Shown here is an 83-nucleotide RNA sequence from Schizosaccharomyces pombe, a member of the family "tRNA". The base pairs follow the family's consensus structure, which is taken from published work. The family is grouped with related families in Rfam's "tRNA clan".
[Rfam]
RNA sequence: GCCUAAAUGCUGGAAUUUGGUAGACAGAACAAACUUAAGAUUUGUCGCUUUCGAGCGUGUUGGUUCGAGUCCAACUUUAGGUA
Numbered sequence: 001g002c003c004u005a006a007a008u009g010c011u012g013g014a015a016u017u018u019g020g021u022a023g024a025c026a027g028a029a030c031a032a033a034c035u036u037a038a039g040a041u042u043u044g045u046c047g048c049u050u051u052c053g054a055g056c057g058u059g060u061u062g063g064u065u066c067g068a069g070u071c072c073a074a075c076u077u078u079a080g081g082u083a
Stems, first nucleotide, its partner, number of pairs: 001082007010027003029045005059075005